[Rfam]
RNA sequence: GUCGGAGCCAAAUUGGACCGACAAAGGGACGUCACGCCGCGCAAGGUGUGGCGGUUUGUACCAUGUUGCUCAAAUGGAGGAUGUGGCUAUGAGAA
Numbered sequence: 001g002u003c004g005g006a007g008c009c010a011a012a013u014u015g016g017a018c019c020g021a022c023a024a025a026g027g028g029a030c031g032u033c034a035c036g037c038c039g040c041g042c043a044a045g046g047u048g049u050g051g052c053g054g055u056u057u058g059u060a061c062c063a064u065g066u067u068g069c070u071c072a073a074a075u076g077g078a079g080g081a082u083g084u085g086g087c088u089a090u091g092a093g094a095a
Stems, first nucleotide, its partner, number of pairs: 001022005008016002030053009055093006061086007069079003
This 95-nucleotide sequence from Starkeya sp. ORNL1 belongs to the Rfam family "Repression of heat shock gene expression (ROSE) element".
The base pairs follow the family's consensus structure, which is taken from published work.
The literature on the family includes a 2001 paper in Nucleic Acids Res by Nocker et al., "A mRNA-based thermosensor controls expression of rhizobial heat shock genes".
Gene Ontology terms of the family: response to temperature stimulus and regulation of translation.
It scores 53 bits against the family's covariance model.
The family's RNA type in Rfam is RNA thermoregulator.